Rfam assigns this 127-nucleotide sequence from Firmicutes bacterium CAG:555 to the family "Ribosomal protein L10 leader".
The source organism's lineage runs through Bacteria, Bacillati and Bacillota.
The family's RNA type in Rfam is cis-regulatory leader.

RNA sequence: AUAUUCUGUUCGAGCGCUCCAAAGACAGCAGGUCGCUUUCAGUGUAAUUCCUGCCGAGGAUAGCAUCAAUAUCAUUGAUUGCUUACUGCCUCUGCGUCUUAGGAUGCAGGGGUUUUUCUUAUGAGCG
Numbered sequence: 001a002u003a004u005u006c007u008g009u010u011c012g013a014g015c016g017c018u019c020c021a022a023a024g025a026c027a028g029c030a031g032g033u034c035g036c037u038u039u040c041a042g043u044g045u046a047a048u049u050c051c052u053g054c055c056g057a058g059g060a061u062a063g064c065a066u067c068a069a070u071a072u073c074a075u076u077g078a079u080u081g082c083u084u085a086c087u088g089c090c091u092c093u094g095c096g097u098c099u100u101a102g103g104a105u106g107c108a109g110g111g112g113u114u115u116u117u118c119u120u121a122u123g124a125g126c127g
Base pairs, nucleotide, nucleotide: 028054029053030052031051032050035043036042037041089112090111091110092109093108094107095106096105097104098103

About this RNA
Rfam links the family to the GO term regulation of gene expression. The match comes from Rfam's covariance-model search (53 bits).